[Rfam]
RNA: mir-7 microRNA precursor family
RNA sequence: GGCGUUACGCGUUGUGGAAGACUAGUGAUUUUGUUGUUGUACAUUUUCGUUCAUGACAACAAGUCCCAGUCUCCCUCAGCGAGUCGCGCC
Numbered sequence: 001g002g003c004g005u006u007a008c009g010c011g012u013u014g015u016g017g018a019a020g021a022c023u024a025g026u027g028a029u030u031u032u033g034u035u036g037u038u039g040u041a042c043a044u045u046u047u048c049g050u051u052c053a054u055g056a057c058a059a060c061a062a063g064u065c066c067c068a069g070u071c072u073c074c075c076u077c078a079g080c081g082a083g084u085c086g087c088g089c090c
Stems, first nucleotide, its partner, number of pairs: 002089004007084002010081005016075002019072005025067001027065005033060006